The record is a 76-nucleotide sequence from Musa acuminata, which matches "Small nucleolar RNA R160" in Rfam. The organism belongs to Musa acuminata, within Eukaryota. The base pairs follow the family's consensus structure. From the family's description: snoR160 is a C/D box small nucleolar RNA, which acts as a methylation guide for 25S ribosomal RNA in plants. snoR160 has been alternatively named snoZ270 in rice.

[Rfam]
RNA sequence: AGCAAAAUGAUGAGUCUUGUUGAUCUGAAGUUAAUGUGGAUAACACUGCAAUGGUCUUCAAAGUUCUCUGAUUGUU
Numbered sequence: 001a002g003c004a005a006a007a008u009g010a011u012g013a014g015u016c017u018u019g020u021u022g023a024u025c026u027g028a029a030g031u032u033a034a035u036g037u038g039g040a041u042a043a044c045a046c047u048g049c050a051a052u053g054g055u056c057u058u059c060a061a062a063g064u065u066c067u068c069u070g071a072u073u074g075u076u
Stems, first nucleotide, its partner, number of pairs: 001076005